[Rfam]
RNA sequence: CUGCAGCCAAUUAAACUGACAGUGCUGCCCUCCCCAUGGUGCCCGGUAUGAAGUGGCUGCAAAUAGCAGCUUCCUGGGUAGUGUACGCAGCCUGUUGCUUGUAUAGGCUGCCCUAAGGGACCCUGGAGACAGCC
Numbered sequence: 001c002u003g004c005a006g007c008c009a010a011u012u013a014a015a016c017u018g019a020c021a022g023u024g025c026u027g028c029c030c031u032c033c034c035c036a037u038g039g040u041g042c043c044c045g046g047u048a049u050g051a052a053g054u055g056g057c058u059g060c061a062a063a064u065a066g067c068a069g070c071u072u073c074c075u076g077g078g079u080a081g082u083g084u085a086c087g088c089a090g091c092c093u094g095u096u097g098c099u100u101g102u103a104u105a106g107g108c109u110g111c112c113c114u115a116a117g118g119g120a121c122c123c124u125g126g127a128g129a130c131a132g133c134c
Stems, first nucleotide, its partner, number of pairs: 002052001004050002019047002022044001025041001028039001077122003088110006
Dot-bracket structure: .(.((.............((.(..(..(..........).)..).)).)).)........................(((........((((((...........)))))).........)))............
The family of this 134-nucleotide sequence from Erinaceus europaeus is "Small nucleolar RNA SNORA70". The family has 43 seed sequences and 5,173 matches in Rfam 15.1. It scores 123 bits against the family's covariance model. Taxonomically the source falls in Erinaceus (Eukaryota, Vertebrata, Dipnotetrapodomorpha, Amniota). Rfam's curators write: snoRNA U70 seems to be exclusive to mammals and is a member of the H/ACA class of snoRNA which contain H (ANANNA) and ACA box motifs. H/ACA box snoRNAs are involved in the conversion of uridines to pseudouridines (5-ribosyluracil) a constituent of structural RNAs (transfer, ribosomal, small nuclear, and small nucleolar).